[Rfam]
RNA sequence: GGUCGGUGAGGAGCGUUGGCAUGUAUUACCUGAUGGAGAGUUGAUGUCUAUCAACACUUUAGCUCUAGAAUUGCUCUUAGACCCA
Numbered sequence: 001g002g003u004c005g006g007u008g009a010g011g012a013g014c015g016u017u018g019g020c021a022u023g024u025a026u027u028a029c030c031u032g033a034u035g036g037a038g039a040g041u042u043g044a045u046g047u048c049u050a051u052c053a054a055c056a057c058u059u060u061a062g063c064u065c066u067a068g069a070a071u072u073g074c075u076c077u078u079a080g081a082c083c084c085a
Base pairs, nucleotide, nucleotide: 001083002082003081004080
This 85-nucleotide RNA from Herpetotheres cachinnans belongs to the Rfam family "Small nucleolar RNA SNORD45". The family's consensus secondary structure was predicted with PFOLD. Rfam 15.1 lists 1,629 matches to the family in 521 species. The organism belongs to Herpetotheres, within Eukaryota. Rfam links the family to the GO terms nucleolus and RNA processing. For this family Rfam cites "Purified box C/D snoRNPs are able to reproduce site-specific 2'-O-methylation of target RNA in vitro" (Galardi et al., Mol Cell Biol, 2002).